[Rfam]
RNA sequence: ACCGCUAAGCCAUCUCUCCAGCCCGCAAAUACUAUUUUAAAAAUAUAUUUUUGGGGGCUGGAGAGAUGGCUUAGCAGU
Dot-bracket structure: .(.(((((((((((((((((((((..............................))))))))))))))))))))).).
About this RNA
This 78-nucleotide RNA from Jaculus jaculus belongs to the Rfam family "mir-3473 microRNA precursor family". Its family is annotated with RISC complex, cellular response to mechanical stimulus and miRNA-mediated post-transcriptional gene silencing in the Gene Ontology. The organism belongs to Jaculus, within Eukaryota. The family has 5 seed sequences and 1,094 matches in Rfam 15.1. The base pairs follow the family's consensus structure, which was predicted with RNAalifold.